[Rfam]
The record is a 162-nucleotide RNA from Oxobacter pfennigii, which matches "M-box riboswitch aptamer (ykoK leader)" in Rfam. Rfam links the family to the GO terms regulation of gene expression and response to magnesium ion. Lineage of the source: Bacteria > Bacillati > Clostridia > Clostridiaceae > Oxobacter.
RNA sequence: AUAAAACCUCGGUAGGUGAGGUUACUACAGGGAUAAGGGCUGCUGCCGUAAAAGGAUGGAGACAUUCUUAACUGGUGAGCAGGUUUAGCCGAACAAAGAAGGCUUAACUUAAUGCAGCUUCAUGGCCUUGCAGAGCCAAAACUUGAACGGGAAAUGGUGAUU
Numbered sequence: 001a002u003a004a005a006a007c008c009u010c011g012g013u014a015g016g017u018g019a020g021g022u023u024a025c026u027a028c029a030g031g032g033a034u035a036a037g038g039g040c041u042g043c044u045g046c047c048g049u050a051a052a053a054g055g056a057u058g059g060a061g062a063c064a065u066u067c068u069u070a071a072c073u074g075g076u077g078a079g080c081a082g083g084u085u086u087a088g089c090c091g092a093a094c095a096a097a098g099a100a101g102g103c104u105u106a107a108c109u110u111a112a113u114g115c116a117g118c119u120u121c122a123u124g125g126c127c128u129u130g131c132a133g134a135g136c137c138a139a140a141a142c143u144u145g146a147a148c149g150g151g152a153a154a155u156g157g158u159g160a161u162u
Base pairs, nucleotide, nucleotide: 005158007156009154011148013100015143016142017141020137021136022135025133026132028130029129030128031127032126039118040117041116042115043114046074048072049071055066056065057064058063082109083108084107085106088103089102090101